[Rfam]
RNA: Photosynthesis regulatory RNA1
RNA sequence: AAAAUCUUCAGCUUCGGUACUUGCAUCUAAUCGUCAUUCAUAUUUCUCCUAAUCAACCCUGGCCAGUUUCACCAGGGUUUUU
Numbered sequence: 001a002a003a004a005u006c007u008u009c010a011g012c013u014u015c016g017g018u019a020c021u022u023g024c025a026u027c028u029a030a031u032c033g034u035c036a037u038u039c040a041u042a043u044u045u046c047u048c049c050u051a052a053u054c055a056a057c058c059c060u061g062g063c064c065a066g067u068u069u070c071a072c073c074a075g076g077g078u079u080u081u082u
Stems, first nucleotide, its partner, number of pairs: 056078007